[Rfam]
RNA sequence: CACACACGGCGCACGGCUUGCUUCGGGAGACAUCCGGACGGGCCACCGGUGGCGGGAAACCGCUGACGCGCCGUGGAGGCCAAACCGGAAAGGAAAAAC
Numbered sequence: 001c002a003c004a005c006a007c008g009g010c011g012c013a014c015g016g017c018u019u020g021c022u023u024c025g026g027g028a029g030a031c032a033u034c035c036g037g038a039c040g041g042g043c044c045a046c047c048g049g050u051g052g053c054g055g056g057a058a059a060c061c062g063c064u065g066a067c068g069c070g071c072c073g074u075g076g077a078g079g080c081c082a083a084a085c086c087g088g089a090a091a092g093g094a095a096a097a098a099c
Stems, first nucleotide, its partner, number of pairs: 001078001003076001005075007015044002024036003052063004